The family of this 434-nucleotide part of an RNA from Plectosphaerella cucumerina is "Eukaryotic large subunit ribosomal RNA".
For this family Rfam cites "The comparative RNA web (CRW) site: an online database of comparative sequence and structure information for ribosomal, intron, and other RNAs" (Cannone et al., BMC Bioinformatics, 2002).
It scores 3323 bits against the family's covariance model.
The organism belongs to Plectosphaerella, within Eukaryota.
RNA sequence: GGUAGUAGCAAAUACUUCAAUGAGAACUUGAAGGACCGAAGUGGGGAAAGGUUCCAUGUGAACAGCGGUUGGACGUGGGUCAGUCGAUCCUAAGCUAUAGGGAAGUUCCGUUUCAAAGGGGCGCUCUCGCCCCGUAUAGCGAAAGGGAAGCUGGUUAAUAUUCCAGCACCUGGAUGUGGGUUUUGCGCGGCAACGCAACCGAACGUGGAGACGACGGCGGGGGCCCCGGGAAGAGUUCUCUUUUCUUCUUAACGAUCUAUCACCCUGGAAUCGGUUUGUCCGGAGAUAGGGUUCAACGGUCGGAAGAGCCCAGCGCUUCUGCUGGGUCCGGUGCGUCCUCGACGUCCCUUGAAAAUCCGCGGGAGGGAAUAAUUCUCACGCCAGGUCGUACUCAUAACCGCAGCAGGUCUCCAAGGUGAACAGCCUCUGGUUGA
Numbered sequence: 001g002g003u004a005g006u007a008g009c010a011a012a013u014a015c016u017u018c019a020a021u022g023a024g025a026a027c028u029u030g031a032a033g034g035a036c037c038g039a040a041g042u043g044g045g046g047a048a049a050g051g052u053u054c055c056a057u058g059u060g061a062a063c064a065g066c067g068g069u070u071g072g073a074c075g076u077g078g079g080u081c082a083g084u085c086g087a088u089c090c091u092a093a094g095c096u097a098u099a100g101g102g103a104a105g106u107u108c109c110g111u112u113u114c115a116a117a118g119g120g121g122c123g124c125u126c127u128c129g130c131c132c133c134g135u136a137u138a139g140c141g142a143a144a145g146g147g148a149a150g151c152u153g154g155u156u157a158a159u160a161u162u163c164c165a166g167c168a169c170c171u172g173g174a175u176g177u178g179g180g181u182u183u184u185g186c187g188c189g190g191c192a193a194c195g196c197a198a199c200c201g202a203a204c205g206u207g208g209a210g211a212c213g214a215c216g217g218c219g220g221g222g223g224c225c226c227c228g229g230g231a232a233g234a235g236u237u238c239u240c241u242u243u244u245c246u247u248c249u250u251a252a253c254g255a256u257c258u259a260u261c262a263c264c265c266u267g268g269a270a271u272c273g274g275u276u277u278g279u280c281c282g283g284a285g286a287u288a289g290g291g292u293u294c295a296a297c298g299g300u301c302g303g304a305a306g307a308g309c310c311c312a313g314c315g316c317u318u319c320u321g322c323u324g325g326g327u328c329c330g331g332u333g334c335g336u337c338c339u340c341g342a343c344g345u346c347c348c349u350u351g352a353a354a355a356u357c358c359g360c361g362g363g364a365g366g367g368a369a370u371a372a373u374u375c376u377c378a379c380g381c382c383a384g385g386u387c388g389u390a391c392u393c394a395u396a397a398c399c400g401c402a403g404c405a406g407g408u409c410u411c412c413a414a415g416g417u418g419a420a421c422a423g424c425c426u427c428u429g430g431u432u433g434a
Stems, first nucleotide, its partner, number of pairs: 015033006034432004043412004049392002054078006063071002085388003089146002094140002097111002100109003119133003150167005170384004175380005180374001187196003204361006213346004218341007226331003229249006253302005262292006271283004309326007398407002414426004